[Rfam]
RNA sequence: UGUUCCCUGCGGUGUACGACAGCGUUUCGUUACAUUUGCCUUGUUCCUAACUUUCGACCUGGGUCGGCAACAAGGUGGCCGGUGAGCAUGUCCGUCGCGUACGGAAAGCCUGAAACGCCAUCUGCGCCCUCCCACCUGAUCCUUCCGGAUCAAGGUCGUUCGAAGCGCAUCGGCAUUGUGGAGAACAC
Numbered sequence: 001u002g003u004u005c006c007c008u009g010c011g012g013u014g015u016a017c018g019a020c021a022g023c024g025u026u027u028c029g030u031u032a033c034a035u036u037u038g039c040c041u042u043g044u045u046c047c048u049a050a051c052u053u054u055c056g057a058c059c060u061g062g063g064u065c066g067g068c069a070a071c072a073a074g075g076u077g078g079c080c081g082g083u084g085a086g087c088a089u090g091u092c093c094g095u096c097g098c099g100u101a102c103g104g105a106a107a108g109c110c111u112g113a114a115a116c117g118c119c120a121u122c123u124g125c126g127c128c129c130u131c132c133c134a135c136c137u138g139a140u141c142c143u144u145c146c147g148g149a150u151c152a153a154g155g156u157c158g159u160u161c162g163a164a165g166c167g168c169a170u171c172g173g174c175a176u177u178g179u180g181g182a183g184a185a186c187a188c
Base pairs, nucleotide, nucleotide: 002186003185004184005183007181008180009179010178011177012176013175014174015173017172018171019170038156039155040154042152043151045149046148047147061133062132063131066128067127068126072123074122075121076120077119078118079117086109087108091105092104093103094102095101
This 188-nucleotide RNA sequence from Oleiagrimonas soli belongs to the Rfam family "6S / SsrS RNA". The family has 150 seed sequences and 5,006 matches in Rfam 15.1. E. coli 6S RNA was the first non coding RNA to be sequenced, but its function was unknown until recently. It consists of 184 nucleotides that fold into an extended hairpin structure with a large single-stranded internal bulge. The 6S RNA specifically associates with RNA polymerase holoenzyme containing the sigma70 specificity factor. This interaction represses expression from a sigma70-dependent promoter during stationary phase. 6S RNA homologs have recently been identified in most bacterial genomes. Many Gram-positive species have two copies of 6S RNA. In Bacillus subtilis, both copies appear to interact with RNA polymerase holoenzyme containing the housekeeping sigma factor and be expressed during different stages of growth. In many proteobacteria, 6S RNA may be processed from a transcript encoding homologs of the E. coli YgfA protein which is a putative 5-formyltetrahydrofolate cycloligase activity.